Shown here is an 84-nucleotide RNA sequence from Hipposideros armiger, a member of the family "mir-452 microRNA precursor family".
The organism belongs to Hipposideros, within Eukaryota.
Rfam links the family to the GO terms miRNA-mediated post-transcriptional gene silencing and RISC complex.
RNA sequence: GCUAAUACUUACAACUGUUUGCGGAGGAAACGGAGACUUUUAAACCACAUCUCCGUCUCUUCUGCAAAGAAGUAAGUGCUUGGC
Numbered sequence: 001g002c003u004a005a006u007a008c009u010u011a012c013a014a015c016u017g018u019u020u021g022c023g024g025a026g027g028a029a030a031c032g033g034a035g036a037c038u039u040u041u042a043a044a045c046c047a048c049a050u051c052u053c054c055g056u057c058u059c060u061u062c063u064g065c066a067a068a069g070a071a072g073u074a075a076g077u078g079c080u081u082g083g084c
Stems, first nucleotide, its partner, number of pairs: 001084002004081002006078007016070001018068008027059002030056007040049001